RNA sequence: GCACCAGUUUAACUCAGUGGCUACUUCUCCUCACAGAUCAUUGCUAAUGCUUCUCCUGUCUGAACACGGCGAGGAGGUUCAAAUCCACGGGCACUGUCUGGUGUUUUU
Numbered sequence: 001g002c003a004c005c006a007g008u009u010u011a012a013c014u015c016a017g018u019g020g021c022u023a024c025u026u027c028u029c030c031u032c033a034c035a036g037a038u039c040a041u042u043g044c045u046a047a048u049g050c051u052u053c054u055c056c057u058g059u060c061u062g063a064a065c066a067c068g069g070c071g072a073g074g075a076g077g078u079u080c081a082a083a084u085c086c087a088c089g090g091g092c093a094c095u096g097u098c099u100g101g102u103g104u105u106u107u108u
Base pairs, nucleotide, nucleotide: 002103003102004101005100006099007098013091014090015089017088018087019086020085025083026082
RNA: Vault RNA
Organism: Myripristis murdjan